[Rfam]
RNA sequence: GCCCAGGGACGUAGCACCGCCCUGGCUCCAGCUGUCCCUUCUUGGGGACGACCCCA
Number, nucleotide and partner (000 for none) at each position: 001g027002c000003c025004c024005a023006g022007g021008g020009a000010c000011g000012u000013a000014g000015c000016a000017c000018c000019g000020c008021c007022c006023u005024g004025g003026c000027u001028c000029c000030a000031g000032c000033u000034g000035u000036c000037c000038c000039u000040u000041c000042u000043u056044g055045g054046g053047g052048a000049c000050g000051a000052c047053c046054c045055c044056a043